RNA sequence: GGAUUCCUGUCGAGUAAGAACUAACCAUUCGCUCGUAGCGAGCCUUGUAGGACAACAGGUAACUGUUGCCUUUAAACGUAGACAGUUAGGUAAUGGGCUGAAAGCCAAAACGCAAGUUGAAAGGAUUGAGGCUCGAAAACCCAAAUCAGAAGGGCUGAUGUGCUGGUCUGUACAGAAAGCAACAUUAUUAUUCUCGCAAAAUGGCAAGAGGAUAGUAAAUUCUUGAUUAUGUGAU
Numbered sequence: 001g002g003a004u005u006c007c008u009g010u011c012g013a014g015u016a017a018g019a020a021c022u023a024a025c026c027a028u029u030c031g032c033u034c035g036u037a038g039c040g041a042g043c044c045u046u047g048u049a050g051g052a053c054a055a056c057a058g059g060u061a062a063c064u065g066u067u068g069c070c071u072u073u074a075a076a077c078g079u080a081g082a083c084a085g086u087u088a089g090g091u092a093a094u095g096g097g098c099u100g101a102a103a104g105c106c107a108a109a110a111c112g113c114a115a116g117u118u119g120a121a122a123g124g125a126u127u128g129a130g131g132c133u134c135g136a137a138a139a140c141c142c143a144a145a146u147c148a149g150a151a152g153g154g155c156u157g158a159u160g161u162g163c164u165g166g167u168c169u170g171u172a173c174a175g176a177a178a179g180c181a182a183c184a185u186u187a188u189u190a191u192u193c194u195c196g197c198a199a200a201a202u203g204g205c206a207a208g209a210g211g212a213u214a215g216u217a218a219a220u221u222c223u224u225g226a227u228u229a230u231g232u233g234a235u
Stems, first nucleotide, its partner, number of pairs: 011035004018030003022207001025204001038086002042083001044081002046078002049072003053068006127231001130228002133226003148223004154180003159174004185218011
The record is a 235-nucleotide sequence from Aquibacillus salsiterrae, which matches "Group II catalytic intron D1-D4-6" in Rfam. The family has 174 seed sequences and 1,617 matches in Rfam 15.1. It scores 101 bits against the family's covariance model. The pairing is the family consensus, mapped onto this sequence. Rfam's curators write: Group II introns are found in rRNA, tRNA and mRNA of organelles in fungi, plants and protists, and also in mRNA in bacteria.